[Rfam]
RNA sequence: CCCAGCACUGAAGUGCUGGGCUAUUGUCGUUGUGUCCCUCCGGGACA
Numbered sequence: 001c002c003c004a005g006c007a008c009u010g011a012a013g014u015g016c017u018g019g020g021c022u023a024u025u026g027u028c029g030u031u032g033u034g035u036c037c038c039u040c041c042g043g044g045a046c047a
Base pairs, nucleotide, nucleotide: 001020002019003018004017005016006015007014008013034046035045036044037043038042

This 47-nucleotide sequence from Lacipirellula limnantheis belongs to the Rfam family "Acido-Lenti-1 RNA". Lineage of the source: Bacteria > Pseudomonadati > Planctomycetia > Pirellulales > Lacipirellula. The family's RNA type in Rfam is small RNA. A search with the family's covariance model found it, with a score of 40 bits. The family has 87 seed sequences and 2,607 matches in Rfam 15.1.